[Rfam]
Mu-gpT-DE RNA: a 51-nucleotide sequence. The family's RNA type in Rfam is small RNA. It is one of the family's seed sequences.

RNA sequence: CCCUGACGGCCGCAUUCCGCGGUCGACAAGCCAAGACAGGAGAAUAUCAUG
Numbered sequence: 001c002c003c004u005g006a007c008g009g010c011c012g013c014a015u016u017c018c019g020c021g022g023u024c025g026a027c028a029a030g031c032c033a034a035g036a037c038a039g040g041a042g043a044a045u046a047u048c049a050u051g
Base pairs, nucleotide, nucleotide: 002040003039004038005037007025008024009023010022011021